[Rfam]
RNA: Bacterial small subunit ribosomal RNA, nucleotides 557 to 908
Organism: Candidatus Ornithobacterium hominis
RNA sequence: GGUUUAAAGGGUCCGUAGGCGGGCUAAUAAGUCAGUGGUGAAAUCUCACAGCUCAACUGUGAAAUUGCCAUUGAUACUGUUAGUCUUGAGUGAGUUUGAUGUUGCUGGAAUGUGUAGUGUAGCGGUGAAAUGCAUAGAUAUUACACGGAACACCGAAUGCGAAGGCAGGUAACAAAGACUUAACUGACGCUGAUGGACGAAGGCGUGGGGAGCGAACAGGAUUAGAUACCCUGGUAGUCCACGCAGUAAACGAUGCUAACUCGUUUUCGGGGUGAAGAACUUCGGAGGCCAAGCGAAAGUGAUAAGUUAGCCACCUGGGGAGUACGUUCGCAAGAAUGAAACUCAAAGGAAU
Numbered sequence: 001g002g003u004u005u006a007a008a009g010g011g012u013c014c015g016u017a018g019g020c021g022g023g024c025u026a027a028u029a030a031g032u033c034a035g036u037g038g039u040g041a042a043a044u045c046u047c048a049c050a051g052c053u054c055a056a057c058u059g060u061g062a063a064a065u066u067g068c069c070a071u072u073g074a075u076a077c078u079g080u081u082a083g084u085c086u087u088g089a090g091u092g093a094g095u096u097u098g099a100u101g102u103u104g105c106u107g108g109a110a111u112g113u114g115u116a117g118u119g120u121a122g123c124g125g126u127g128a129a130a131u132g133c134a135u136a137g138a139u140a141u142u143a144c145a146c147g148g149a150a151c152a153c154c155g156a157a158u159g160c161g162a163a164g165g166c167a168g169g170u171a172a173c174a175a176a177g178a179c180u181u182a183a184c185u186g187a188c189g190c191u192g193a194u195g196g197a198c199g200a201a202g203g204c205g206u207g208g209g210g211a212g213c214g215a216a217c218a219g220g221a222u223u224a225g226a227u228a229c230c231c232u233g234g235u236a237g238u239c240c241a242c243g244c245a246g247u248a249a250a251c252g253a254u255g256c257u258a259a260c261u262c263g264u265u266u267u268c269g270g271g272g273u274g275a276a277g278a279a280c281u282u283c284g285g286a287g288g289c290c291a292a293g294c295g296a297a298a299g300u301g302a303u304a305a306g307u308u309a310g311c312c313a314c315c316u317g318g319g320g321a322g323u324a325c326g327u328u329c330g331c332a333a334g335a336a337u338g339a340a341a342c343u344c345a346a347a348g349g350a351a352u
Base pairs, nucleotide, nucleotide: 001315002314003313009312011198012197013196014195016192018191019190020189022085023084024083025082026081027080028079030078031077032074033073034072035071036070037069038068039067040066046062047061048060049059050058051057089185090184091183092181093180094179095178096177097176100174101173102172103171104170105169106168107151111147112146113145114144115143116142117141118140122133123132124131159166160165203244204243205242206241207240208239212238213237217233218232219231220230255311256310257309258308259307260306263289264288265287266286267285268284269283270282271281272280273279293300294299317344318343319342326337327336328335329334